[Rfam]
RNA sequence: GGGUUACUCCUUUGCGCUUUCAGCGCUCAAUUUGAUAAAGAUUCGCACCUCUAUCAAACCGGGUAACCCCGCUUUUCGCAAGGCCCUACUGUCAGAUUAAAUCUGAACUACUACAGCUAAUAUAACCGGUUUGCAAACGGCAAGAACAGCCAUAUCAUCAUCCGCCUAUCCCCUCAGUUUUAUGCAAUCCGCUGCAA
Numbered sequence: 001g002g003g004u005u006a007c008u009c010c011u012u013u014g015c016g017c018u019u020u021c022a023g024c025g026c027u028c029a030a031u032u033u034g035a036u037a038a039a040g041a042u043u044c045g046c047a048c049c050u051c052u053a054u055c056a057a058a059c060c061g062g063g064u065a066a067c068c069c070c071g072c073u074u075u076u077c078g079c080a081a082g083g084c085c086c087u088a089c090u091g092u093c094a095g096a097u098u099a100a101a102u103c104u105g106a107a108c109u110a111c112u113a114c115a116g117c118u119a120a121u122a123u124a125a126c127c128g129g130u131u132u133g134c135a136a137a138c139g140g141c142a143a144g145a146a147c148a149g150c151c152a153u154a155u156c157a158u159c160a161u162c163c164g165c166c167u168a169u170c171c172c173c174u175c176a177g178u179u180u181u182a183u184g185c186a187a188u189c190c191g192c193u194g195c196a197a
Stems, first nucleotide, its partner, number of pairs: 001069007009062002014026004031058007039050002078156001082151002086149002091108002093105005111144002180197002183194001184192002
Rfam assigns this 197-nucleotide RNA sequence from Nitrosospira multiformis to the family "Proteobacterial sRNA psRNA2". The literature on the family includes a 2010 paper in FEMS Microbiol Lett by Gvakharia et al., "Computational prediction and transcriptional analysis of sRNAs in Nitrosomonas europaea". The match comes from Rfam's covariance-model search (129 bits).